[Rfam]
RNA sequence: CUCUAGAAGCGGGGGUGCCGGGCUUUUUGCCUGGCUGAGAGAGUCCCUUGGAACCUGAUCCGGUUAACACCGGCGUAGGGAGCUUUAGCAGUUGCGCG
Numbered sequence: 001c002u003c004u005a006g007a008a009g010c011g012g013g014g015g016u017g018c019c020g021g022g023c024u025u026u027u028u029g030c031c032u033g034g035c036u037g038a039g040a041g042a043g044u045c046c047c048u049u050g051g052a053a054c055c056u057g058a059u060c061c062g063g064u065u066a067a068c069a070c071c072g073g074c075g076u077a078g079g080g081a082g083c084u085u086u087a088g089c090a091g092u093u094g095c096g097c098g
Stems, first nucleotide, its partner, number of pairs: 006086005011048004016042001017035007054079004060073004
RNA: TPP riboswitch aptamer (THI element)
Organism: Dyella tabacisoli